[Rfam]
Shown here is a 292-nucleotide sequence from Sciurus vulgaris, a member of the family "Mason-Pfizer monkey virus packaging signal". The family's consensus secondary structure was predicted with PFOLD.
RNA sequence: UGGUGCCCAACGGUGUGGCUUUGGAUACGGGGGAAUUUGUGAGGGAAAUGGUGUGUAAGUGUUCGGCCGAAGAAGAAGAAAAAAAAAAAGUGAAAGGUAUUUCCACAAAGUUCGCCGUGGGAGCCUGCCGUGCCAUUCUUAAAGAUACAGUAGUGCCUACCUAUGGGACAAGAAUUAAGUAAGCAUAAAGUUUUUGUUAAGCAAUUAAAAGAAGCUUUAAAGACACAGGGAGUAAAGGUUAAGAGUAAUGAUCUUUUUAAGCUUUUUGACCUUAUUAAGGACACCUGUCCAU
Numbered sequence: 001u002g003g004u005g006c007c008c009a010a011c012g013g014u015g016u017g018g019c020u021u022u023g024g025a026u027a028c029g030g031g032g033g034a035a036u037u038u039g040u041g042a043g044g045g046a047a048a049u050g051g052u053g054u055g056u057a058a059g060u061g062u063u064c065g066g067c068c069g070a071a072g073a074a075g076a077a078g079a080a081a082a083a084a085a086a087a088a089a090g091u092g093a094a095a096g097g098u099a100u101u102u103c104c105a106c107a108a109a110g111u112u113c114g115c116c117g118u119g120g121g122a123g124c125c126u127g128c129c130g131u132g133c134c135a136u137u138c139u140u141a142a143a144g145a146u147a148c149a150g151u152a153g154u155g156c157c158u159a160c161c162u163a164u165g166g167g168a169c170a171a172g173a174a175u176u177a178a179g180u181a182a183g184c185a186u187a188a189a190g191u192u193u194u195u196g197u198u199a200a201g202c203a204a205u206u207a208a209a210a211g212a213a214g215c216u217u218u219a220a221a222g223a224c225a226c227a228g229g230g231a232g233u234a235a236a237g238g239u240u241a242a243g244a245g246u247a248a249u250g251a252u253c254u255u256u257u258u259a260a261g262c263u264u265u266u267u268g269a270c271c272u273u274a275u276u277a278a279g280g281a282c283a284c285c286u287g288u289c290c291a292u
Base pairs, nucleotide, nucleotide: 006033007032008031013028014027015026038051039049040048098147099146100145101143102142110138112135116132117131118130119129120128151171153169154168156167157166158165159164176219177218178217179215180214226268227267228266229265230264231263232262233261236254237253238252239251240250241249277292279290280289281288282287
Dot-bracket structure: .....(((....(((..........)))..)))....(((.......)).)..............................................(((((.......(.(...(((((.......)))))..)..)...)).)))...(.((.((((....)))))).)....(((((.................................)).)))......((((((((..((((((.......))))))......))))))))........(.((((....)))).)

By type it is a cis-regulatory element. Rfam's curators write: This family represents a group of sequences that are related to the Mason-Pfizer monkey virus (MPMV) packaging signal. The packaging signal is located in the 5' UTR and is required for specific RNA encapsidation.